[Rfam]
RNA sequence: UGGCACCCAAUGUGGGGCUUGGAUACUGUGGGACAACGUGAGGUCUGACGACAGAUGAAAAAGGGGUGCACACCCACUCAAAUAAUUCGGAGAUGCCGCAGGAGCCUGCCACGACUGAGCCGAAGGUAAGUUGGUCGUUCAAAUAUGGGGCAAGAACUAAGUCAGCAUCAGAUUUAUGUAAUACAAUUAAGAGAAGCUCUAUAGGCAAAAGGAGUAAAGGUUAAAACUGAGGAUUUAUUUCAUUUCUUUGAUUUUGUAAAGGACAUUUGUCCCU
Numbered sequence: 001u002g003g004c005a006c007c008c009a010a011u012g013u014g015g016g017g018c019u020u021g022g023a024u025a026c027u028g029u030g031g032g033a034c035a036a037c038g039u040g041a042g043g044u045c046u047g048a049c050g051a052c053a054g055a056u057g058a059a060a061a062a063g064g065g066g067u068g069c070a071c072a073c074c075c076a077c078u079c080a081a082a083u084a085a086u087u088c089g090g091a092g093a094u095g096c097c098g099c100a101g102g103a104g105c106c107u108g109c110c111a112c113g114a115c116u117g118a119g120c121c122g123a124a125g126g127u128a129a130g131u132u133g134g135u136c137g138u139u140c141a142a143a144u145a146u147g148g149g150g151c152a153a154g155a156a157c158u159a160a161g162u163c164a165g166c167a168u169c170a171g172a173u174u175u176a177u178g179u180a181a182u183a184c185a186a187u188u189a190a191g192a193g194a195a196g197c198u199c200u201a202u203a204g205g206c207a208a209a210a211g212g213a214g215u216a217a218a219g220g221u222u223a224a225a226a227c228u229g230a231g232g233a234u235u236u237a238u239u240u241c242a243u244u245u246c247u248u249u250g251a252u253u254u255u256g257u258a259a260a261g262g263a264c265a266u267u268u269g270u271c272c273c274u
Base pairs, nucleotide, nucleotide: 006031007030012026013025014024037050038049039048084127086125087123088122097113098112101109136150138149139148140147141146158201159200161197162196209249210248211247212246213245214244218236219235220234221233222232259274261272262271263270264269
Dot-bracket structure: .....((....(((.........)))...)).....(((........))).................................(.(((........((..(.......)..))........)).).)........(.((((....))))).......((.((.................................))..)).......((((((...(((((.........))))).......)))))).........(.((((....)))).)
Source information: Rfam assigns this 274-nucleotide RNA from Nannospalax galili to the family "Mason-Pfizer monkey virus packaging signal". This family represents a group of sequences that are related to the Mason-Pfizer monkey virus (MPMV) packaging signal. The family's RNA type in Rfam is cis-regulatory element.